[Rfam]
RNA sequence: CUUGGUCCCUGGGGAAAGAAGCCUCGCAACUUCCCCAUGACCCAA
Numbered sequence: 001c002u003u004g005g006u007c008c009c010u011g012g013g014g015a016a017a018g019a020a021g022c023c024u025c026g027c028a029a030c031u032u033c034c035c036c037a038u039g040a041c042c043c044a045a
Base pairs, nucleotide, nucleotide: 002044004042005041008039010037011036012035013034014033015032016031018030021027022026
Shown here is a 45-nucleotide RNA from Lentivirus simimdef, a member of the family "ribosomal frameshift site". Rfam classes the family as a frameshift element. The base pairs follow the family's consensus structure, which is taken from published work. NCBI's taxonomy places the organism under Viruses, Pararnavirae, Ortervirales, Retroviridae, Lentivirus simimdef. On this family, see Hatfield et al., Adv Virus Res 1992: "Translational suppression in retroviral gene expression".